[Rfam]
RNA sequence: AGGCUAGGACAAUGGUAGGCUCGCUAAGCGUGUCAGAUCUGGAAGGAAGCAGCACUACGUGAGUGCUACCAUGUGUCUAAUAUAAAU
Number, nucleotide and partner (000 for none) at each position: 001a000002g000003g000004c000005u080006a000007g078008g077009a076010c073011a000012a072013u071014g070015g069016u068017a067018g000019g064020c063021u062022c061023g060024c059025u000026a000027a000028g000029c000030g055031u054032g053033u052034c000035a000036g000037a000038u047039c046040u045041g000042g000043a000044a000045g040046g039047a038048a000049g000050c000051a000052g033053c032054a031055c030056u000057a000058c000059g024060u023061g022062a021063g020064u019065g000066c000067u017068a016069c015070c014071a013072u012073g010074u000075g000076u009077c008078u007079a000080a005081u000082a000083u000084a000085a000086a000087u000

The family of this 87-nucleotide RNA sequence from Vagococcus vulneris is "Bacterial small signal recognition particle RNA".
From the family's description: The signal recognition particle (SRP) is a universally conserved ribonucleoprotein involved in the co-translational targeting of proteins to membranes.
The organism belongs to Vagococcus, within Bacteria.
The match comes from Rfam's covariance-model search (48 bits).